[Rfam]
RNA sequence: GAGAGAAAAAUAACUGUUUGUAGUGGUAAUGAAAAUGUCCCACUAUAUCCUUAUCUCUUUGCCAAGUGCUGGAAAUGGGCCAUUUUCAUUACCACUACAAACAGUUAUUUUUCUC
Numbered sequence: 001g002a003g004a005g006a007a008a009a010a011u012a013a014c015u016g017u018u019u020g021u022a023g024u025g026g027u028a029a030u031g032a033a034a035a036u037g038u039c040c041c042a043c044u045a046u047a048u049c050c051u052u053a054u055c056u057c058u059u060u061g062c063c064a065a066g067u068g069c070u071g072g073a074a075a076u077g078g079g080c081c082a083u084u085u086u087c088a089u090u091a092c093c094a095c096u097a098c099a100a101a102c103a104g105u106u107a108u109u110u111u112u113c114u115c
Stems, first nucleotide, its partner, number of pairs: 006112006013105016030088003
RNA: MIR397 microRNA precursor family
Organism: Gopherus evgoodei